[Rfam]
RNA sequence: CCUGUCCAACGACGGGUCAUCGGAAUGUGGUCCCUUCGGGACUGAACCGGACA
Number, nucleotide and partner (000 for none) at each position: 001c016002c015003u014004g013005u012006c000007c000008a000009a000010c000011g000012a005013c004014g003015g002016g001017u000018c000019a000020u000021c049022g048023g047024a000025a000026u000027g000028u000029g043030g042031u041032c040033c039034c000035u000036u000037c000038g000039g033040g032041a031042c030043u029044g000045a000046a000047c023048c022049g021050g000051a000052c000053a000
A member of the RNA family "eL15-Euryarchaeota ribosomal protein leader" from Halorubellus sp. JP-L1, 53 nucleotides long. Pairs were carried over by alignment from the consensus structure, which is taken from published work. Lineage of the source: Archaea > Methanobacteriati > Halobacteria > Halorubellaceae > Halorubellus. It scores 35 bits against the family's covariance model.